[Rfam]
RNA: Small nucleolar RNA SNORD89
Organism: Hymenochirus boettgeri
RNA sequence: GCUAUGGAGUGAUGACCUAAAAGGCCGAAUUGCAGCUCCUCUGAGCAGUUUUCUCUAGAGGUGCAAUGACAAAGCCCCUUGAAGCGACCUUGGCUGACCAUUGC
Numbered sequence: 001g002c003u004a005u006g007g008a009g010u011g012a013u014g015a016c017c018u019a020a021a022a023g024g025c026c027g028a029a030u031u032g033c034a035g036c037u038c039c040u041c042u043g044a045g046c047a048g049u050u051u052u053c054u055c056u057a058g059a060g061g062u063g064c065a066a067u068g069a070c071a072a073a074g075c076c077c078c079u080u081g082a083a084g085c086g087a088c089c090u091u092g093g094c095u096g097a098c099c100a101u102u103g104c
Stems, first nucleotide, its partner, number of pairs: 001104002004101004014094001016092001024033002034090002037087002039084001042082001044080002048064002051061001053060002068075001